A member of the RNA family "Histone 3' UTR stem-loop" from Neogobius melanostomus, 45 nucleotides long. The mRNAs of metazoan histone genes lack a poly-A tail. 3' end processing occurs at a site between a highly conserved stem-loop (modelled by this family) and a purine rich region around 20 nts downstream (the histone downstream element, or HDE). Rfam classes the family as a cis-regulatory element. Pairs were carried over by alignment from the consensus structure, which is taken from published work.
RNA sequence: AAAACGGCUCUUUUAAGAGCCACCCACUUUCACUAAAGAGAACAC
Numbered sequence: 001a002a003a004a005c006g007g008c009u010c011u012u013u014u015a016a017g018a019g020c021c022a023c024c025c026a027c028u029u030u031c032a033c034u035a036a037a038g039a040g041a042a043c044a045c
Stems, first nucleotide, its partner, number of pairs: 006021006